[Rfam]
This 243-nucleotide sequence from Acerihabitans arboris belongs to the Rfam family "GcvB RNA". Lineage of the source: Bacteria > Pseudomonadati > Enterobacterales > Pectobacteriaceae > Acerihabitans. For this family Rfam cites "The gcvB gene encodes a small untranslated RNA involved in expression of the dipeptide and oligopeptide transport systems in Escherichia coli" (Urbanowski et al., Mol Microbiol, 2000). The family's consensus secondary structure is taken from published work. From the family's description: The gcvB gene encodes a small untranslated RNA involved in expression of the dipeptide and oligopeptide transport systems in Escherichia coli. Included several unknown homologues in alignment (Bateman A pers obs).
RNA sequence: CGCGCGCGGGCCGGAACGAAAAGCGGGUUUGGAUUUUGCGAUUCAGACGUGCUUUUGGCCUGUGGUGUGAUGUUGUGUUUGCCAAUUUUGACCUUGUCUUAAGGUCUGUAGCUUUUUGCGGUAGCCUGAUGCGGUUAUUUGAAACAGAGGCGCUGCAGCUGUACUUUUUCAGCCUUACUGAACAUUUCUCUGUCUGUCCAAAAAGCGAAAUAUGCAGCACCGCGUAAAGCGGUGCUUUUUUAU
Numbered sequence: 001c002g003c004g005c006g007c008g009g010g011c012c013g014g015a016a017c018g019a020a021a022a023g024c025g026g027g028u029u030u031g032g033a034u035u036u037u038g039c040g041a042u043u044c045a046g047a048c049g050u051g052c053u054u055u056u057g058g059c060c061u062g063u064g065g066u067g068u069g070a071u072g073u074u075g076u077g078u079u080u081g082c083c084a085a086u087u088u089u090g091a092c093c094u095u096g097u098c099u100u101a102a103g104g105u106c107u108g109u110a111g112c113u114u115u116u117u118g119c120g121g122u123a124g125c126c127u128g129a130u131g132c133g134g135u136u137a138u139u140u141g142a143a144a145c146a147g148a149g150g151c152g153c154u155g156c157a158g159c160u161g162u163a164c165u166u167u168u169u170c171a172g173c174c175u176u177a178c179u180g181a182a183c184a185u186u187u188c189u190c191u192g193u194c195u196g197u198c199c200a201a202a203a204a205g206c207g208a209a210a211u212a213u214g215c216a217g218c219a220c221c222g223c224g225u226a227a228a229g230c231g232g233u234g235c236u237u238u239u240u241u242a243u
Stems, first nucleotide, its partner, number of pairs: 009060004015056002021054005026048001028047008088108001090106006110160004183214003216236008
Dot-bracket structure: ........((((..((....((((((.((((((((....))))))))).)))))))))))...........................(.((((((.....)))))).).((((...........................................))))......................(((..........................))).((((((((.....)))))))).......